[Rfam]
RNA sequence: CCCCUUUUCAUGGACGAGGGAAAUGCCUAUAUGGGGAUUGCCGGACACCUGUCCGGCUAUGGCAAUAAACGGUCGGUGUAAUAAACCUAUUGGACCCGGGGGCGGUACCCGGCGCCUCCACCAAAAACCGGUCGGUCGAAGAAGACCGGCUUUUGAUGGGGGCGAAAUAGGAUCGACAAGGGUGUAAAGAUCGAACUUUUGCUCGGCAUGAUACCACCGUUAUCGGGUCAAAAAGUGUAGUUGCAAACGACAACAACGCUAAGGAAUAUGCUCUCGCUGCCUAAUGGCGGUGCGGGAAUUCCGCUUUAAGUCCUUACGGUUAGCACCGUAAGGCGGGGUCCGAAGGCACCUGGCAACAGAAGCCUUCACC
Numbered sequence: 001c002c003c004c005u006u007u008u009c010a011u012g013g014a015c016g017a018g019g020g021a022a023a024u025g026c027c028u029a030u031a032u033g034g035g036g037a038u039u040g041c042c043g044g045a046c047a048c049c050u051g052u053c054c055g056g057c058u059a060u061g062g063c064a065a066u067a068a069a070c071g072g073u074c075g076g077u078g079u080a081a082u083a084a085a086c087c088u089a090u091u092g093g094a095c096c097c098g099g100g101g102g103c104g105g106u107a108c109c110c111g112g113c114g115c116c117u118c119c120a121c122c123a124a125a126a127a128c129c130g131g132u133c134g135g136u137c138g139a140a141g142a143a144g145a146c147c148g149g150c151u152u153u154u155g156a157u158g159g160g161g162g163c164g165a166a167a168u169a170g171g172a173u174c175g176a177c178a179a180g181g182g183u184g185u186a187a188a189g190a191u192c193g194a195a196c197u198u199u200u201g202c203u204c205g206g207c208a209u210g211a212u213a214c215c216a217c218c219g220u221u222a223u224c225g226g227g228u229c230a231a232a233a234a235g236u237g238u239a240g241u242u243g244c245a246a247a248c249g250a251c252a253a254c255a256a257c258g259c260u261a262a263g264g265a266a267u268a269u270g271c272u273c274u275c276g277c278u279g280c281c282u283a284a285u286g287g288c289g290g291u292g293c294g295g296g297a298a299u300u301c302c303g304c305u306u307u308a309a310g311u312c313c314u315u316a317c318g319g320u321u322a323g324c325a326c327c328g329u330a331a332g333g334c335g336g337g338g339u340c341c342g343a344a345g346g347c348a349c350c351u352g353g354c355a356a357c358a359g360a361a362g363c364c365u366u367c368a369c370c
Base pairs, nucleotide, nucleotide: 040057041056042055043054044053045052046051061203062202063201064200065199071196073194074193075192076191077190086182087181088180090179091178092177096112097111098110099109100108113164114163115162116161117160118159119158204219205218206217209230210229211228214226215225336351337350338349339348342367343366344365345364346363347362
A member of the RNA family "Alphaproteobacteria transfer-messenger RNA" from Rhizobium sp. YS-1r, 370 nucleotides long.
A search with the family's covariance model found it, with a score of 309 bits.